[Rfam]
RNA: SAM-III riboswitch aptamer (SMK box)
RNA sequence: GGAUGUUACAUUGAAUUCCCGAUAGGACGAUCUUGGUAGGUCGGAUUCCUUGUAACCGAAAAAAACGUAGGGGGAAUAUAGGAUG
Number, nucleotide and partner (000 for none) at each position: 001g000002g000003a000004u000005g000006u000007u000008a000009c000010a000011u000012u000013g000014a000015a000016u076017u075018c074019c073020c072021g000022a000023u000024a050025g049026g048027a000028c043029g042030a041031u040032c039033u000034u000035g000036g000037u000038a000039g032040g031041u030042c029043g028044g000045a000046u000047u000048c026049c025050u024051u000052g000053u000054a000055a000056c071057c070058g000059a000060a000061a000062a000063a000064a000065a000066c000067g000068u000069a000070g057071g056072g020073g019074g018075a017076a016077u000078a000079u000080a000081g000082g000083a000084u000085g000